The family of this 90-nucleotide RNA sequence from Hirundo rustica is "Small nucleolar RNA SNORD35". The match comes from Rfam's covariance-model search (68 bits). Its family is annotated with RNA processing and nucleolus in the Gene Ontology. Lineage of the source: Eukaryota > Metazoa > Gnathostomata > Archosauria > Hirundo rustica. From the family's description: U35 is a C/D box snoRNA located in intron 6 of ribosomal protein L13A and intron 3 of ribosomal protein S11 in humans and at homologous positions in mouse and chicken ribosomal protein genes. U35 guides the methylation of 2'-O-ribose sites in 28S rRNA.
RNA sequence: GGGUUAUGAUGUCCAAACUCACGAUGGUCUGCAGAGUCCCCGAGCUGCGGGGCUGCUGACAAUGCCACCGGCACACACUGAACCCCGGGG
Numbered sequence: 001g002g003g004u005u006a007u008g009a010u011g012u013c014c015a016a017a018c019u020c021a022c023g024a025u026g027g028u029c030u031g032c033a034g035a036g037u038c039c040c041c042g043a044g045c046u047g048c049g050g051g052g053c054u055g056c057u058g059a060c061a062a063u064g065c066c067a068c069c070g071g072c073a074c075a076c077a078c079u080g081a082a083c084c085c086c087g088g089g090g
Base pairs, nucleotide, nucleotide: 001085002084003083004082
Overview: The family has 8 seed sequences and 1,842 matches in Rfam 15.1.